The record is a 372-nucleotide sequence from Liquorilactobacillus vini, which matches "Bacterial RNase P class B" in Rfam. The literature on the family includes a 1998 paper in Annu Rev Biochem by Frank and Pace, "Ribonuclease P: unity and diversity in a tRNA processing ribozyme". Ribonuclease P (RNase P) is a ubiquitous endoribonuclease, found in archaea, bacteria and eukarya as well as chloroplasts and mitochondria. Its best characterised activity is the generation of mature 5'-ends of tRNAs by cleaving the 5'-leader elements of precursor-tRNAs. Cellular RNase Ps are ribonucleoproteins. RNA from bacterial RNase Ps retains its catalytic activity in the absence of the protein subunit, i.e. it is a ribozyme.
[Rfam]
RNA sequence: AGUUUCUGGUGAUCGCGGUUCGCCUUUGAGCGGACUGAGGAAAGUCCAAGCUUGCACAGACUGCGAUGUCUGUAGUGAUCGUGCUCGCUGAAAAAAUAAGGCGAGGUACCAUUUGGUAAUGGCAAACAAACGGGCUAAGGCUUUGGCUAUGCUCUAGUAGUUUUGAAAAGUGCCACAGUGACGAAGCAAUAUUGGAAACAGUAUUGAUGGAACGCGGUAAACCCCACGAGCAGGUAACCCAAAUUAUGGUAGGGGCGCUUCAUGCCGGAAAUGAACUAAGCAUGGGGGCAGGCAAUUUGCCUGGAGAUAGAUGAUCGCCACCUUGUUUGAUAUCUCCUGGAUCAUUCAAGGGACGGAACGUGGCUUAUAGAG
Numbered sequence: 001a002g003u004u005u006c007u008g009g010u011g012a013u014c015g016c017g018g019u020u021c022g023c024c025u026u027u028g029a030g031c032g033g034a035c036u037g038a039g040g041a042a043a044g045u046c047c048a049a050g051c052u053u054g055c056a057c058a059g060a061c062u063g064c065g066a067u068g069u070c071u072g073u074a075g076u077g078a079u080c081g082u083g084c085u086c087g088c089u090g091a092a093a094a095a096a097u098a099a100g101g102c103g104a105g106g107u108a109c110c111a112u113u114u115g116g117u118a119a120u121g122g123c124a125a126a127c128a129a130a131c132g133g134g135c136u137a138a139g140g141c142u143u144u145g146g147c148u149a150u151g152c153u154c155u156a157g158u159a160g161u162u163u164u165g166a167a168a169a170g171u172g173c174c175a176c177a178g179u180g181a182c183g184a185a186g187c188a189a190u191a192u193u194g195g196a197a198a199c200a201g202u203a204u205u206g207a208u209g210g211a212a213c214g215c216g217g218u219a220a221a222c223c224c225c226a227c228g229a230g231c232a233g234g235u236a237a238c239c240c241a242a243a244u245u246a247u248g249g250u251a252g253g254g255g256c257g258c259u260u261c262a263u264g265c266c267g268g269a270a271a272u273g274a275a276c277u278a279a280g281c282a283u284g285g286g287g288g289c290a291g292g293c294a295a296u297u298u299g300c301c302u303g304g305a306g307a308u309a310g311a312u313g314a315u316c317g318c319c320a321c322c323u324u325g326u327u328u329g330a331u332a333u334c335u336c337c338u339g340g341a342u343c344a345u346u347c348a349a350g351g352g353a354c355g356g357a358a359c360g361u362g363g364c365u366u367a368u369a370g371a372g
Stems, first nucleotide, its partner, number of pairs: 004372003008319007016037006042366003046363003050359001051234005056073006079229005084105006106120001107118004121224002124163004132154004139148003170222002172218003187206008238254003258287007289303005321351005328344004
Notes
It is annotated as a ribozyme. Rfam links the family to the GO terms ribonuclease P activity, dimeric ribonuclease P complex and tRNA processing.